mir-17 microRNA precursor family: a 73-nucleotide RNA sequence from Tetraodon nigroviridis.
About the family: This family represents the microRNA (miRNA) precursor mir-17, family, which includes mir-20, mir-91, and mir-103. miRNAs are transcribed as ~70nt precursors (modelled here) and subsequently processed by the Dicer enzyme to give a ~22nt product. In this case the mature sequence comes from the 3' arm of the precursor. The extents of the hairpin precursors are not generally known and are estimated based on hairpin prediction.
For this family Rfam cites "Identification of novel genes coding for small expressed RNAs" (Lagos-Quintana et al., Science, 2001).

RNA sequence: GCAGUAUUAAAGUGCUUAUAGUGCAGGUAGUUUUCUCAGGGUCUACUGCAGUAUGAGCACUUCUAGUACUUCU
Numbered sequence: 001g002c003a004g005u006a007u008u009a010a011a012g013u014g015c016u017u018a019u020a021g022u023g024c025a026g027g028u029a030g031u032u033u034u035c036u037c038a039g040g041g042u043c044u045a046c047u048g049c050a051g052u053a054u055g056a057g058c059a060c061u062u063c064u065a066g067u068a069c070u071u072c073u
Stems, first nucleotide, its partner, number of pairs: 001072001003070002006067003010062011022050003026047005